A member of the RNA family "Small nucleolar RNA Z102/R77" from Phoenix dactylifera, 85 nucleotides long. The literature on the family includes a 2003 paper in Nucleic Acids Res by Chen et al., "The high diversity of snoRNAs in plants: identification and comparative study of 120 snoRNA genes from Oryza sativa". Taxonomically the source falls in Phoenix (Eukaryota, Streptophyta, Spermatophyta, Phoeniceae). Rfam links the family to the GO terms nucleolus and RNA processing. It scores 80 bits against the family's covariance model.
RNA sequence: AAGUGAGAUGAUGGUUAAUUUGUUUCCCUAUUGGUUUGACGGCCAAAAUGAUGGCUGUUGUUGUAUUAGCUCUAUCUGAUCACUC
Numbered sequence: 001a002a003g004u005g006a007g008a009u010g011a012u013g014g015u016u017a018a019u020u021u022g023u024u025u026c027c028c029u030a031u032u033g034g035u036u037u038g039a040c041g042g043c044c045a046a047a048a049u050g051a052u053g054g055c056u057g058u059u060g061u062u063g064u065a066u067u068a069g070c071u072c073u074a075u076c077u078g079a080u081c082a083c084u085c
Base pairs, nucleotide, nucleotide: 002084003083004082005081038058041056042055043054044053